[Rfam]
RNA sequence: GUACGUCUUCAGGGCGGGGUGAAAGUCCCCACCGGCGGUAUGGCCGAAAGGCCGAGCCCGCGAGCGCCUGCCUUACCGGCAGGGUCAGCAGAUCUGGUGAGAUGCCAGAGCCGACGGUUACAGUCCGGAUGAGAGAAGACGUGA
Number, nucleotide and partner (000 for none) at each position: 001g000002u000003a142004c141005g140006u139007c138008u137009u136010c135011a000012g000013g000014g000015c000016g000017g029018g028019g027020u000021g000022a000023a000024a000025g000026u000027c019028c018029c017030c000031a124032c123033c113034g112035g061036c060037g059038g058039u000040a000041u000042g000043g000044c000045c000046g000047a000048a000049a000050g000051g000052c000053c000054g000055a000056g111057c110058c038059c037060g036061c035062g000063a000064g089065c088066g000067c000068c000069u000070g000071c000072c000073u000074u000075a000076c000077c000078g000079g000080c000081a000082g000083g000084g000085u000086c000087a000088g065089c064090a000091g000092a000093u109094c108095u107096g106097g105098u000099g000100a000101g000102a000103u000104g000105c097106c096107a095108g094109a093110g057111c056112c034113g033114a000115c127116g126117g125118u000119u000120a000121c000122a000123g032124u031125c117126c116127g115128g000129a000130u000131g000132a000133g000134a000135g010136a009137a008138g007139a006140c005141g004142u003143g000144a000
Shown here is a 144-nucleotide RNA sequence from Leeia aquatica, a member of the family "FMN riboswitch aptamer (RFN element)". Pairs were carried over by alignment from the consensus structure, which is taken from published work. The RFN element is a highly conserved domain that is found frequently in the 5'-untranslated regions of prokaryotic mRNAs that encode for flavin mononucleotide (FMN) biosynthesis and transport proteins. This element is a metabolite-dependent riboswitch that directly binds FMN in the absence of proteins. In Bacillus subtilis, the riboswitch most likely controls gene expression by causing premature transcription termination within the 5' untranslated region of the ribDEAHT operon and precluding access to the ribosome-binding site of ypaA mRNA.The FMN riboswitch structure, reported in present an FMN-bound six-stem junction, adopts a butterfly-like scaffold, stapled together by opposingly directed but nearly identically folded peripheral domains. The match comes from Rfam's covariance-model search (120 bits). NCBI's taxonomy places the organism under Bacteria, Pseudomonadati, Pseudomonadota, Betaproteobacteria, Leeia.